[Rfam]
Nucleotides: 109
Base pairs, nucleotide, nucleotide: 001109003107004106005105006104007103014046015045016044017043018042019041020040048095049094050093051091052090055089056088057087062082063081
Number, partner (000 for none) and nucleotide at each position: 001109c002000a003107c004106u005105c006104u007103g008000g009000a010000a011000a012000g013000c014046g015045a016044u017043g018042g019041c020040g021000a022000c023000c024000c025000c026000c027000g028000g029000a030000u031000c032000u033000c034000g035000g036000a037000g038000g039000g040020c041019g042018u043017c044016a045015u046014c047000c048095a049094c050093c051091g052090a053000c054000g055089g056088g057087g058000g059000u060000a061000a062082c063081u064000c065000g066000c067000g068000g069000c070000a071000c072000g073000u074000g075000c076000c077000g078000c079000g080000g081063g082062g083000a084000a085000a086000u087057c088056u089055c090052u091051c092000a093050g094049g095048u096000c097000c098000c099000g100000g101000g102000a103007c104006a105005g106004a107003g108000g109001g
Glycine riboswitch aptamer: a 109-nucleotide sequence from Enterovirga rhinocerotis.
The source organism's lineage runs through Bacteria, Pseudomonadota, Alphaproteobacteria, Methylobacteriaceae and Enterovirga.